[Rfam]
RNA sequence: UGAUGUCCCUCACCCCGCCUGAAGGUCCCAGGGGGCGAGGGGAUAGUCGGAGGGAUC
Numbered sequence: 001u002g003a004u005g006u007c008c009c010u011c012a013c014c015c016c017g018c019c020u021g022a023a024g025g026u027c028c029c030a031g032g033g034g035g036c037g038a039g040g041g042g043a044u045a046g047u048c049g050g051a052g053g054g055a056u057c
Base pairs, nucleotide, nucleotide: 006042007041008040009039010038011037013035014034015033016032024057025056026055027054028053029052

The family of this 57-nucleotide sequence from Cnephaeus nilssonii is "Antizyme RNA frameshifting stimulation element". Rfam links the family to the GO term translational frameshifting. Rfam classes the family as a frameshift element. It scores 60 bits against the family's covariance model. On this family, see Ivanov et al., J Mol Biol 2004: "Identification of a new antizyme mRNA +1 frameshifting stimulatory pseudoknot in a subset of diverse invertebrates and its apparent absence in intermediate species". Rfam describes the family as follows. This family represents a structural element which is found in antizyme mRNA and is known to promote frameshifting. Antizyme genes have have two partially overlapping open reading frames, the second, which encodes the functional protein requires +1 translational frameshifting. This frameshift is stimulated by a pseudoknot present 3' of the frameshift site in the antizyme mRNA. The frameshifting efficiency is dependent on the level of polyamines in the cell, when the polyamine concentration is high frameshifting is more likely to occur which leads to an increase in the quantity of functional antizyme produced.